[Rfam]
RNA sequence: AGUCAAGAGUCUUUGACGUCGUUGCGGCGAGCAUUUUUCUAUUGCCUUUCGAAAGGUAGGGAAAUG
Numbered sequence: 001a002g003u004c005a006a007g008a009g010u011c012u013u014u015g016a017c018g019u020c021g022u023u024g025c026g027g028c029g030a031g032c033a034u035u036u037u038u039c040u041a042u043u044g045c046c047u048u049u050c051g052a053a054a055g056g057u058a059g060g061g062a063a064a065u066g
Stems, first nucleotide, its partner, number of pairs: 010062003014059001018057003022054002025051003029047001031045003035041001